A member of the RNA family "Bacterial RNase P class A" from Halopseudomonas phragmitis, 352 nucleotides long.
RNA sequence: AGAGUUGGCCGGACAGUCGCUGUGCCGCAAGGCAUGGAGGAAAGUCCGGGCUCCAUAGGGCAGAGUGCCAGGUAACGCCUGGGAGGCGCGAGCCUACGGAAAGUGCAGCAGAGAGCAGACCGCCGAUGGCCCUGCAAGGGGAUCAGGUAAGGGUGAAAGGGUGCGGUAAGAGCGCACCGCACGACUGGUAACAGUUCGUGGCACGGUAAACCCCACUCGGAGCAAGACCAAAUAGGAACCCGAUGGUGUGGCCCGCACUGGGUUCGGGUAGGUUGCUACAGGCAGUCAGUGAUGGCUGUCGCAGAGGAAUGGCUGUCCUCGACAGAACCCGGCUUAUAGGCCAACUCUUUAU
Numbered sequence: 001a002g003a004g005u006u007g008g009c010c011g012g013a014c015a016g017u018c019g020c021u022g023u024g025c026c027g028c029a030a031g032g033c034a035u036g037g038a039g040g041a042a043a044g045u046c047c048g049g050g051c052u053c054c055a056u057a058g059g060g061c062a063g064a065g066u067g068c069c070a071g072g073u074a075a076c077g078c079c080u081g082g083g084a085g086g087c088g089c090g091a092g093c094c095u096a097c098g099g100a101a102a103g104u105g106c107a108g109c110a111g112a113g114a115g116c117a118g119a120c121c122g123c124c125g126a127u128g129g130c131c132c133u134g135c136a137a138g139g140g141g142a143u144c145a146g147g148u149a150a151g152g153g154u155g156a157a158a159g160g161g162u163g164c165g166g167u168a169a170g171a172g173c174g175c176a177c178c179g180c181a182c183g184a185c186u187g188g189u190a191a192c193a194g195u196u197c198g199u200g201g202c203a204c205g206g207u208a209a210a211c212c213c214c215a216c217u218c219g220g221a222g223c224a225a226g227a228c229c230a231a232a233u234a235g236g237a238a239c240c241c242g243a244u245g246g247u248g249u250g251g252c253c254c255g256c257a258c259u260g261g262g263u264u265c266g267g268g269u270a271g272g273u274u275g276c277u278a279c280a281g282g283c284a285g286u287c288a289g290u291g292a293u294g295g296c297u298g299u300c301g302c303a304g305a306g307g308a309a310u311g312g313c314u315g316u317c318c319u320c321g322a323c324a325g326a327a328c329c330c331g332g333c334u335u336a337u338a339g340g341c342c343a344a345c346u347c348u349u350u351a352u
Stems, first nucleotide, its partner, number of pairs: 001348010011337001012317007020037007042335003046332005051222004058254004063218005068082005083097001084095004098213002103211002105207002120152002122148003127145003131141002160178006179202001180200005185194003226274004236265006245259005281300008
From the family's description: Ribonuclease P (RNase P) is a ubiquitous endoribonuclease, found in archaea, bacteria and eukarya as well as chloroplasts and mitochondria. Its best characterised activity is the generation of mature 5'-ends of tRNAs by cleaving the 5'-leader elements of precursor-tRNAs. Cellular RNase Ps are ribonucleoproteins.
Pairs were carried over by alignment from the consensus structure, which is taken from published work.